[Rfam]
RNA sequence: CGAGCCGGCCGGGCGGUCGCGUCGGGGGGUCUUCGGAUCUCCCGCCGAGGAAAGUCCGGGCUCCACAGGGCAGGGUGGUCGGUAACACCGACCCGGGGCGACCCGCGGGACAGUGCCACAGAGAACAGACCGCCCCGCGCUCCCAGGAGCGCAGGGUAAGGGUGAAACGGUGAGGUAAGAGCUCACCAGCGCCCGGAGCGAUCCGGGCGGCUAGGUAAACCCCACCCGGAGCAAGACCAGACAGCGGAUGCACGAGGGCUGCCCGCCCGAGUCCGCGGGUAGGUCGCUAGAGGGCGCCGGCAACGGCCCCCCAAGAUGGAUGACCGCCAAGGAGACGUCGGCAACGACCCUCCAGAACAGAACCCGGCUUACAGGCCGCCUCGUCCG
Dot-bracket structure: ((((.(((((((((((((.((.((((((((......)))))))).))....[[[.[[[[[((((...[[[[.((((((((((.....)))))(((((....)))).)((...(((((............((((((.((((((....)))))).))))..)).......((((((.......)))))).(((((((((....)))))))).)..)))..)))))))))))))...((((.....((((((......((((.]]]]))))..)))))).....))))......(((.((((....)))).)))..........)))))))..................................]]]]]]]].).))))).))))....